Notes:
The record is a 207-nucleotide sequence from Trifolium subterraneum, which matches "U11 spliceosomal RNA" in Rfam. It is annotated as a spliceosomal small nuclear RNA.
RNA sequence: AGAAUGUGUCAACUCCCUGCCACCUAUGCCUCACUCACCACUAUUCCUAGUGUCCAUAAGGUACUUCAUAUAGCAAAUUUGUGGAAAUCUUAAGGUACUUCAUAUUCCACGCUCAUCCUUGUUGGUGAGUGUUGUAUGGCUAUCAAGACAUAUGGCUGACGUAAUUUUUGUGAUAUUAUAGGGUUGGCUUGCCAAGCCGACCCUCGG
Numbered sequence: 001a002g003a004a005u006g007u008g009u010c011a012a013c014u015c016c017c018u019g020c021c022a023c024c025u026a027u028g029c030c031u032c033a034c035u036c037a038c039c040a041c042u043a044u045u046c047c048u049a050g051u052g053u054c055c056a057u058a059a060g061g062u063a064c065u066u067c068a069u070a071u072a073g074c075a076a077a078u079u080u081g082u083g084g085a086a087a088u089c090u091u092a093a094g095g096u097a098c099u100u101c102a103u104a105u106u107c108c109a110c111g112c113u114c115a116u117c118c119u120u121g122u123u124g125g126u127g128a129g130u131g132u133u134g135u136a137u138g139g140c141u142a143u144c145a146a147g148a149c150a151u152a153u154g155g156c157u158g159a160c161g162u163a164a165u166u167u168u169u170g171u172g173a174u175a176u177u178a179u180a181g182g183g184u185u186g187g188c189u190u191g192c193c194a195a196g197c198c199g200a201c202c203c204u205c206g207g
Base pairs, nucleotide, nucleotide: 001027032131033130034129035128036127037126038125039124040123042121043120132155133154134153135152136151137150138149180204181203182202183201184200185199186198187197188196189195190194

The base pairs follow the family's consensus structure, which is taken from published work.